[Rfam]
RNA sequence: AAUUAUCAUUUGUCGAGUAUCCUACCGGGCUUUUCACAAAUGAAUCGUUAACUUUUAAGGAGUGCAUAGUGGCCCGUAUCGCUGGCAUUAACGUUCCUGAU
Numbered sequence: 001a002a003u004u005a006u007c008a009u010u011u012g013u014c015g016a017g018u019a020u021c022c023u024a025c026c027g028g029g030c031u032u033u034u035c036a037c038a039a040a041u042g043a044a045u046c047g048u049u050a051a052c053u054u055u056u057a058a059g060g061a062g063u064g065c066a067u068a069g070u071g072g073c074c075c076g077u078a079u080c081g082c083u084g085g086c087a088u089u090a091a092c093g094u095u096c097c098u099g100a101u
Base pairs, nucleotide, nucleotide: 006043007042008041009040010039011038012037013036021085022084026076027075028074029073034100035099

Rfam assigns this 101-nucleotide RNA from Psychromonas ingrahamii to the family "Alpha operon ribosome binding site".
The family's RNA type in Rfam is cis-regulatory element.
Taxonomically the source falls in Psychromonas ingrahamii (Bacteria, Pseudomonadati, Pseudomonadota, Alteromonadales).
The sequence is in the family's curated seed alignment.
The literature on the family includes a 2001 paper in J Biol Chem by Schlax et al., "Translational repression of the Escherichia coli alpha operon mRNA: importance of an mRNA conformational switch and a ternary entrapment complex".
Its family is annotated with ribosome binding in the Gene Ontology.